Background: Plastid-psbA-1 3UTR RNA: a 119-nucleotide RNA sequence. Rfam describes the family as follows. Plastid psbA-1 is a non-coding RNA (ncRNA) present in plastids. It was identified in inverted repeat sequences in the 3 prime untranslate region (3UTR) of photosystem II quinone-binding protein (psbA). On this family, see Richter et al., Plant Commun 2023: "Retrograde signaling in plants: A critical review focusing on the GUN pathway and beyond".

[Rfam]
RNA sequence: UAGAAGUUCCAUCUACAAAUGGAUAAAACUUCGGUAUUAGUCUAUAUGAGUAGUUAUUGAAAAUAAAGCUAAAGGAGCAAUACCAAACUUCUAUCAAGAAGUUUAGUAUUGCUCCUUUU
Numbered sequence: 001u002a003g004a005a006g007u008u009c010c011a012u013c014u015a016c017a018a019a020u021g022g023a024u025a026a027a028a029c030u031u032c033g034g035u036a037u038u039a040g041u042c043u044a045u046a047u048g049a050g051u052a053g054u055u056a057u058u059g060a061a062a063a064u065a066a067a068g069c070u071a072a073a074g075g076a077g078c079a080a081u082a083c084c085a086a087a088c089u090u091c092u093a094u095c096a097a098g099a100a101g102u103u104u105a106g107u108a109u110u111g112c113u114c115c116u117u118u119u
Base pairs, nucleotide, nucleotide: 008023009022010021011020012019071118072117073116074115075114076113077112078111079110080109081108082107083106085104086103087102089100090099091098